Notes: The record is a 166-nucleotide sequence from Litorilinea aerophila, which matches "FMN riboswitch aptamer (RFN element)" in Rfam.
RNA sequence: CCGUACCUUCGGGGCAGGGUGAGGAAGCCCGCAGGCUUCCAAUUCCCGACCGGCAGUGAUCCAGCCCUGGCUGGCUAGCCUGCGAGCGGAGGCAGUCCAUCUGCCGAUGCAGGAGUGCGGUGCGAUUCCGCCGCCGACGGUAUAGUCCGGAUGGGAGAAGGUGCAA
Number, nucleotide and partner (000 for none) at each position: 001c000002c000003g164004u163005a162006c161007c160008u159009u158010c157011g000012g000013g000014g000015c000016a000017g047018g046019g045020u000021g000022a000023g000024g000025a000026a000027g000028c000029c000030c000031g000032c000033a000034g000035g000036c000037u000038u000039c000040c000041a000042a000043u000044u000045c019046c018047c017048g000049a146050c145051c136052g135053g083054c082055a081056g080057u000058g000059a000060u000061c000062c000063a000064g000065c000066c000067c000068u000069g000070g000071c000072u000073g000074g000075c000076u000077a000078g134079c133080c056081u055082g054083c053084g000085a000086g110087c109088g108089g000090a000091g000092g000093c000094a000095g000096u000097c000098c000099a000100u000101c000102u000103g000104c000105c000106g000107a000108u088109g087110c086111a000112g000113g000114a000115g000116u000117g131118c130119g129120g128121u000122g000123c000124g000125a000126u000127u000128c120129c119130g118131c117132c000133g079134c078135c052136g051137a000138c149139g148140g147141u000142a000143u000144a000145g050146u049147c140148c139149g138150g000151a000152u000153g000154g000155g000156a000157g010158a009159a008160g007161g006162u005163g004164c003165a000166a000

Source information
Lineage of the source: Bacteria > Chloroflexota > Caldilineae > Caldilineaceae > Litorilinea. A search with the family's covariance model found it, with a score of 84 bits.